[Rfam]
RNA sequence: UCCUCGCACGAAGAAUCGCAAUCAAAGCACACAAACGGGAGAUCACUUUAUGUCUCCAACAAAACACAGAACAGCUUUGGGAGAAAGUCCCCGGACAUCCUGCCACUCUCUUCUUUGUGAAGAUGCAAGCGGGCAAGCGGAAACGCGCCGCCAUAGAAGCACUUGCGGCUUUCUCUCCUCCUUUCUCUUGGGGCUUUUGCGCCUUGAAGUAGUUUCGAGUGAUGCACGCCGUUUGUACUAUUGCUUACUUUCGACUUUGGUGUCUAGGAAUGCAUGGCGUGGUGGGGUGGGAGAGACCUUAUGGACGAAGAUAUGAGUCCGCGCUCUCUCAUUCUCAUUCGCUUGUUGACUAGCAUUGGGUCGAGGGCGGGUCGUAGAAGGUGUACGUUUACUUGCUCUUCCUGUUGCGUGCGGCUUCCGGGGAAUCAUGGGAGGGAGAGACCAUUUUCGUCGCGAAUGAUAGUUAUGCGAUUGCCCCAUUUCCUUAUUCAUGCUUGUUUCCAUUUCGGUGGCUUCCGCGUGGUGAGGAAAUGGGGUAACUCGAUGGGGCUUAUUCUUGUUGCGAGG
Numbered sequence: 001u002c003c004u005c006g007c008a009c010g011a012a013g014a015a016u017c018g019c020a021a022u023c024a025a026a027g028c029a030c031a032c033a034a035a036c037g038g039g040a041g042a043u044c045a046c047u048u049u050a051u052g053u054c055u056c057c058a059a060c061a062a063a064a065c066a067c068a069g070a071a072c073a074g075c076u077u078u079g080g081g082a083g084a085a086a087g088u089c090c091c092c093g094g095a096c097a098u099c100c101u102g103c104c105a106c107u108c109u110c111u112u113c114u115u116u117g118u119g120a121a122g123a124u125g126c127a128a129g130c131g132g133g134c135a136a137g138c139g140g141a142a143a144c145g146c147g148c149c150g151c152c153a154u155a156g157a158a159g160c161a162c163u164u165g166c167g168g169c170u171u172u173c174u175c176u177c178c179u180c181c182u183u184u185c186u187c188u189u190g191g192g193g194c195u196u197u198u199g200c201g202c203c204u205u206g207a208a209g210u211a212g213u214u215u216c217g218a219g220u221g222a223u224g225c226a227c228g229c230c231g232u233u234u235g236u237a238c239u240a241u242u243g244c245u246u247a248c249u250u251u252c253g254a255c256u257u258u259g260g261u262g263u264c265u266a267g268g269a270a271u272g273c274a275u276g277g278c279g280u281g282g283u284g285g286g287g288u289g290g291g292a293g294a295g296a297c298c299u300u301a302u303g304g305a306c307g308a309a310g311a312u313a314u315g316a317g318u319c320c321g322c323g324c325u326c327u328c329u330c331a332u333u334c335u336c337a338u339u340c341g342c343u344u345g346u347u348g349a350c351u352a353g354c355a356u357u358g359g360g361u362c363g364a365g366g367g368c369g370g371g372u373c374g375u376a377g378a379a380g381g382u383g384u385a386c387g388u389u390u391a392c393u394u395g396c397u398c399u400u401c402c403u404g405u406u407g408c409g410u411g412c413g414g415c416u417u418c419c420g421g422g423g424a425a426u427c428a429u430g431g432g433a434g435g436g437a438g439a440g441a442c443c444a445u446u447u448u449c450g451u452c453g454c455g456a457a458u459g460a461u462a463g464u465u466a467u468g469c470g471a472u473u474g475c476c477c478c479a480u481u482u483c484c485u486u487a488u489u490c491a492u493g494c495u496u497g498u499u500u501c502c503a504u505u506u507c508g509g510u511g512g513c514u515u516c517c518g519c520g521u522g523g524u525g526a527g528g529a530a531a532u533g534g535g536g537u538a539a540c541u542c543g544a545u546g547g548g549g550c551u552u553a554u555u556c557u558u559g560u561u562g563c564g565a566g567g
Base pairs, nucleotide, nucleotide: 002567003566004565005564006563007562008561009559010558011557014473015472016471017470018469019468022081023079024078025077026076027075028074038057039056040055041054042053043052085552086551087550089549090548091547092546101135102134103133104132137151138150139149140148317445318444325441326440327439328438329437330436333433334432335431336430343428345426346425412420413419414418475536476535477534478533479532480531481530482529483528484527485526486525487524488523489522